[Rfam]
This 167-nucleotide RNA sequence from Aquisalinus flavus belongs to the Rfam family "FMN riboswitch aptamer (RFN element)". The organism belongs to Aquisalinus, within Bacteria.
RNA sequence: AUGAACUUUCGGGGCGGGGUGAAAGUCCCCACCGGCGGUAAUCUGGAGAGUUUGGCACCCAAGCCCGUCCAGUCAGCCCGCGAGCGGAAACGGGAGCAAUCCCGCGGAUGCAGGAUCUGGUGAGAUUCCAGAGCCGACGGUCAUAGUCCGGAUGGUAGAAGGUUCGA
Number, nucleotide and partner (000 for none) at each position: 001a000002u000003g165004a164005a163006c162007u161008u160009u159010c158011g000012g000013g000014g000015c000016g000017g029018g028019g027020u000021g000022a000023a000024a000025g000026u000027c019028c018029c017030c000031a147032c146033c136034g135035g081036c080037g079038g078039u000040a000041a000042u000043c000044u000045g000046g000047a000048g000049a000050g000051u000052u000053u000054g000055g000056c000057a000058c000059c000060c000061a000062a000063g000064c000065c000066c000067g000068u000069c000070c000071a000072g000073u000074c000075a000076g134077c133078c038079c037080g036081c035082g000083a000084g111085c110086g109087g000088a000089a000090a000091c000092g000093g000094g000095a000096g000097c000098a000099a000100u000101c000102c000103c000104g000105c000106g000107g000108a000109u086110g085111c084112a000113g000114g000115a000116u132117c131118u130119g129120g128121u000122g000123a000124g000125a000126u000127u000128c120129c119130a118131g117132a116133g077134c076135c034136g033137a000138c150139g149140g148141u000142c000143a000144u000145a000146g032147u031148c140149c139150g138151g000152a000153u000154g000155g000156u000157a000158g010159a009160a008161g007162g006163u005164u004165c003166g000167a000